mir-5904 microRNA precursor family: an 84-nucleotide RNA sequence from Haemonchus contortus. Gene Ontology terms of the family: RISC complex and miRNA-mediated post-transcriptional gene silencing. Rfam's curators put it in the seed alignment.

Nucleotides: 084
Base pairs, nucleotide, nucleotide: 002083003082004081005080006079007078011077012076013075014074015073016072017071018070019068020067021066023063024062025061026060027059028058029057030056032054033053034052036050037049038048039046040045
Number, partner (000 for none) and nucleotide at each position: 001000g002083c003082u004081u005080c006079u007078c008000a009000u010000a011077g012076u013075u014074u015073u016072c017071g018070a019068g020067u021066g022000u023063g024062a025061u026060a027059g028058u029057g030056g031000u032054u033053u034052u035000a036050c037049a038048a039046a040045c041000u042000g043000a044000a045040g046039u047000a048038u049037u050036g051000c052034a053033a054032a055000c056030c057029c058028a059027c060026u061025a062024u063023u064000u065000u066021c067020a068019c069000u070018u071017c072016g073015a074014a075013a076012a077011u078007g079006a080005g081004a082003a083002g084000g